Rfam assigns this 198-nucleotide RNA from Blautia pseudococcoides to the family "Group II catalytic intron D1-D4-5". Gene Ontology term of the family: Group II intron splicing. The literature on the family includes a 2001 paper in Trends Genet by Bonen and Vogel, "The ins and outs of group II introns". Rfam describes the family as follows. Group II introns are found in rRNA, tRNA and mRNA of organelles in fungi, plants and protists, and also in mRNA in bacteria. The source organism's lineage runs through Bacteria, Bacillati, Clostridia, Lachnospiraceae and Blautia. The base pairs follow the family's consensus structure.
[Rfam]
RNA sequence: GAGAACUGAUAAUCCAACAGGUGGAAUGAAGGGGUAACGCCCAGAAACGCCACCCUAAACUCCGACAUGCGUCAUAUGGCGAAAGCCAAGGCGUGUGAAGCUCGGUGAAGUCGGCUGAGAGCAACCGUAGGAUGUGAUCAACAUCUCGAAAGCUGUCCAGAGGUGGACGGUGUUGCCUAUAGGUCGGGGGUCUAUAAA
Numbered sequence: 001g002a003g004a005a006c007u008g009a010u011a012a013u014c015c016a017a018c019a020g021g022u023g024g025a026a027u028g029a030a031g032g033g034g035u036a037a038c039g040c041c042c043a044g045a046a047a048c049g050c051c052a053c054c055c056u057a058a059a060c061u062c063c064g065a066c067a068u069g070c071g072u073c074a075u076a077u078g079g080c081g082a083a084a085g086c087c088a089a090g091g092c093g094u095g096u097g098a099a100g101c102u103c104g105g106u107g108a109a110g111u112c113g114g115c116u117g118a119g120a121g122c123a124a125c126c127g128u129a130g131g132a133u134g135u136g137a138u139c140a141a142c143a144u145c146u147c148g149a150a151a152g153c154u155g156u157c158c159a160g161a162g163g164u165g166g167a168c169g170g171u172g173u174u175g176c177c178u179a180u181a182g183g184u185c186g187g188g189g190g191u192c193u194a195u196a197a198a
Stems, first nucleotide, its partner, number of pairs: 020051004032042003053190004062105004066097008075088001078087002112186005121176005126148002133143002152171008
Dot-bracket structure: ...................((((........(((.....))).....)))).((((.....((((((((((((.(..((......))).))))))))....))))......(((((....(((((((.....((.......))...))...((((((((....))))))))))))).....)))))))))........